[Rfam]
RNA sequence: AAAAAAAGGAGCAAUGCCAAUUUCUUGUUCUAUCAAGAGGGUUGACAUUGCUCCUUUU
Numbered sequence: 001a002a003a004a005a006a007a008g009g010a011g012c013a014a015u016g017c018c019a020a021u022u023u024c025u026u027g028u029u030c031u032a033u034c035a036a037g038a039g040g041g042u043u044g045a046c047a048u049u050g051c052u053c054c055u056u057u058u
Base pairs, nucleotide, nucleotide: 005057006056007055008054009053010052011051012050013049014048015047016046019042022039023038024037025036026035027034